[Rfam]
Description:
This 59-nucleotide RNA sequence from Colobus angolensis belongs to the Rfam family "U7 small nuclear RNA". The family has 49 seed sequences and 10,439 matches in Rfam 15.1. On this family, see Spycher et al., Nucleic Acids Res 1994: "3' end processing of mouse histone pre-mRNA: evidence for additional base-pairing between U7 snRNA and pre-mRNA".
RNA sequence: AAGUGUUACAGCUCUUUUAAAAUUUGUCUAGUGAUUUUUCUAGUUUUCACUGGGAACUG
Numbered sequence: 001a002a003g004u005g006u007u008a009c010a011g012c013u014c015u016u017u018u019a020a021a022a023u024u025u026g027u028c029u030a031g032u033g034a035u036u037u038u039u040c041u042a043g044u045u046u047u048c049a050c051u052g053g054g055a056a057c058u059g
Stems, first nucleotide, its partner, number of pairs: 037056008
Rfam's curators write: Animal histone pre-mRNAs are spliced by a different mechanism than nuclear pre-mRNAs and self-splicing introns. This processing involves the U7 snRNP, which contains only one RNA species: U7. The 5' end of U7 RNA is thought to base-pair to a conserved spacer element downstream of the cleavage site in histone pre-mRNA. This family contains a number of annotated U7 pseudogenes.